[Rfam]
RNA sequence: UUGCCUAAGGGCUAGUAUUACCCUUAGGCAACCUCUGUCGCAAUGUCGCA
Numbered sequence: 001u002u003g004c005c006u007a008a009g010g011g012c013u014a015g016u017a018u019u020a021c022c023c024u025u026a027g028g029c030a031a032c033c034u035c036u037g038u039c040g041c042a043a044u045g046u047c048g049c050a
Stems, first nucleotide, its partner, number of pairs: 001031011

A member of the RNA family "ssNA-helicase RNA" from Cohnella terricola, 50 nucleotides long. The organism belongs to Cohnella, within Bacteria.